[Rfam]
Shown here is a 65-nucleotide RNA from Pedobacter sp. HMWF019, a member of the family "Fluoride riboswitch aptamer (crcB RNA motif)". Rfam links the family to the GO terms positive regulation of gene expression and response to fluoride.
RNA sequence: UAAUGAAAUGGAAAUGGUGUCUUCCAUUUAAAAUAACCGCCGCGGCUGAUGACUCCUACAAAAUU
Numbered sequence: 001u002a003a004u005g006a007a008a009u010g011g012a013a014a015u016g017g018u019g020u021c022u023u024c025c026a027u028u029u030a031a032a033a034u035a036a037c038c039g040c041c042g043c044g045g046c047u048g049a050u051g052a053c054u055c056c057u058a059c060a061a062a063a064u065u
Stems, first nucleotide, its partner, number of pairs: 010025004016056002019053003039046002